[Rfam]
RNA sequence: AUCCAAGUGCUCGGGCUUUACGCGUGGCAGUGAAGAUUCGUCUGAGCCCGUGUUAUUGCUAGUUGAAAACUACAUUCCUGACCUCUCCAGUUGGUCUUCGGAUCGGCUGGGAAUUUUUGUCACCAGUUGCUUUUA
Numbered sequence: 001a002u003c004c005a006a007g008u009g010c011u012c013g014g015g016c017u018u019u020a021c022g023c024g025u026g027g028c029a030g031u032g033a034a035g036a037u038u039c040g041u042c043u044g045a046g047c048c049c050g051u052g053u054u055a056u057u058g059c060u061a062g063u064u065g066a067a068a069a070c071u072a073c074a075u076u077c078c079u080g081a082c083c084u085c086u087c088c089a090g091u092u093g094g095u096c097u098u099c100g101g102a103u104c105g106g107c108u109g110g111g112a113a114u115u116u117u118u119g120u121c122a123c124c125a126g127u128u129g130c131u132u133u134u135a
Stems, first nucleotide, its partner, number of pairs: 020053005026048003034043003086111011